A member of the RNA family "c-di-GMP-I riboswitch aptamer" from Alkaliphilus pronyensis, 83 nucleotides long. The family's consensus secondary structure is taken from published work. It scores 80 bits against the family's covariance model.
RNA sequence: UUUUGACAAAGGCAAACUUUGUGAAAGCAAAGGACGCAAAGCCACGGGUCUAAAGCAAUAGCCAUGAUCGCCGGGUUGCAGUA
Numbered sequence: 001u002u003u004u005g006a007c008a009a010a011g012g013c014a015a016a017c018u019u020u021g022u023g024a025a026a027g028c029a030a031a032g033g034a035c036g037c038a039a040a041g042c043c044a045c046g047g048g049u050c051u052a053a054a055g056c057a058a059u060a061g062c063c064a065u066g067a068u069c070g071c072c073g074g075g076u077u078g079c080a081g082u083a
Stems, first nucleotide, its partner, number of pairs: 012037002017032006040077004045073003048068003055062002